This 425-nucleotide RNA from Prevotella sp. CAG:1031 belongs to the Rfam family "Bacterial RNase P class A".
[Rfam]
RNA sequence: GGAGCUCGGCCUAUCGUGUCGCCGACCGACGCAUGAGCGGCCGGAGGAAAGUCCGGGCAACGAAGAGCACCAUGUUUCCUAACGGGAAGCUGUCGGUAACGGCAGAGCAAGUGUGACAGAAAAUAACCGCCGGCCAAGCCGGUAAGGGUGAAAAGGCGAGGUAAGAGCUCACCGGACCGUAUGGUGACAUACGGCGCCGCACAUCUCAUGGGUUGCAAAGCCAAGUAUACCGGCAUCUGUAAGGAUUGCUCGUCCUUUGCCGGGGGGUAGGCUGCUUGUCGGAUAUUCGCCGACAGAACGGUGUGGCAACAUACCGUCGAGAUAAAUGACACGAACAUGGCGAUGGCCGAUACCAUGCUCUUCAUUAGAGAAUCCGGUCGAAGUGUCGCCAUGACAUAACCCGGCUUAUGACCGCAGCUCCAGUC
Number, nucleotide and partner (000 for none) at each position: 001g421002g420003a419004g418005c417006u416007c414008g413009g412010c000011c000012u411013a409014u334015c333016g332017u331018g330019u329020c328021g000022c044023c043024g042025a000026c040027c039028g038029a000030c000031g000032c000033a000034u000035g000036a000037g000038c028039g027040g026041c000042c024043g023044g022045a000046g000047g000048a000049a407050a406051g405052u000053c404054c403055g402056g401057g400058c215059a214060a213061c212062g000063a000064a000065g251066a250067g249068c248069a000070c211071c210072a209073u208074g207075u089076u088077u087078c086079c085080u000081a000082a000083c000084g000085g079086g078087a077088a076089g075090c105091u000092g103093u102094c101095g100096g000097u000098a000099a000100c095101g094102g093103c092104a000105g090106a206107g205108c000109a000110a000111g204112u203113g202114u201115g200116a000117c000118a000119g000120a000121a000122a000123a000124u000125a000126a000127c147128c146129g143130c142131c141132g140133g139134c138135c000136a000137a000138g134139c133140c132141g131142g130143u129144a000145a000146g128147g127148g000149u000150g000151a000152a000153a000154a000155g173156g172157c000158g170159a169160g168161g000162u000163a000164a000165g000166a000167g000168c160169u159170c158171a000172c156173c155174g000175g197176a000177c194178c193179g192180u191181a190182u189183g188184g000185u000186g000187a000188c183189a182190u181191a180192c179193g178194g177195c000196g000197c175198c000199g000200c115201a114202c113203a112204u111205c107206u106207c074208a073209u072210g071211g070212g061213u060214u059215g058216c000217a000218a000219a273220g272221c271222c270223a000224a000225g000226u000227a000228u000229a000230c263231c262232g261233g260234c259235a000236u000237c000238u000239g000240u000241a000242a256243g255244g254245a253246u252247u000248g068249c067250u066251c065252g246253u245254c244255c243256u242257u000258u000259g234260c233261c232262g231263g230264g000265g000266g000267g000268u000269a000270g222271g221272c220273u219274g000275c000276u000277u000278g000279u000280c000281g000282g000283a000284u000285a000286u000287u000288c000289g000290c000291c000292g000293a000294c000295a000296g000297a000298a317299c316300g315301g314302u313303g312304u311305g310306g000307c000308a000309a000310c305311a304312u303313a302314c301315c300316g299317u298318c000319g000320a000321g000322a000323u000324a000325a000326a000327u000328g020329a019330c018331a017332c016333g015334a014335a000336c000337a000338u000339g000340g000341c000342g000343a000344u000345g000346g000347c000348c000349g000350a000351u000352a000353c000354c000355a000356u000357g000358c000359u000360c000361u000362u000363c000364a000365u000366u000367a000368g000369a000370g000371a000372a000373u000374c000375c000376g000377g000378u000379c000380g000381a000382a000383g000384u000385g000386u000387c000388g000389c000390c000391a000392u000393g000394a000395c000396a000397u000398a000399a000400c057401c056402c055403g054404g053405c051406u050407u049408a000409u013410g000411a012412c009413c008414g007415c000416a006417g005418c004419u003420c002421c001422a000423g000424u000425c000
Rfam classes the family as a ribozyme. The base pairs follow the family's consensus structure, which is taken from published work.